[Rfam]
RNA sequence: GGUCAUGAGCUCCAGCACCAAGCCCCGGCUCGCUGGACGGCAACCCUCCCGCGCGGCGGGGUGCCCCGGGUGACGACCAGGCCGUGGACCCCACGGCAACGGCGCGGA
Numbered sequence: 001g002g003u004c005a006u007g008a009g010c011u012c013c014a015g016c017a018c019c020a021a022g023c024c025c026c027g028g029c030u031c032g033c034u035g036g037a038c039g040g041c042a043a044c045c046c047u048c049c050c051g052c053g054c055g056g057c058g059g060g061g062u063g064c065c066c067c068g069g070g071u072g073a074c075g076a077c078c079a080g081g082c083c084g085u086g087g088a089c090c091c092c093a094c095g096g097c098a099a100c101g102g103c104g105c106g107g108a
Stems, first nucleotide, its partner, number of pairs: 001078004009038001011037006021030002039065003044061003048056002081097007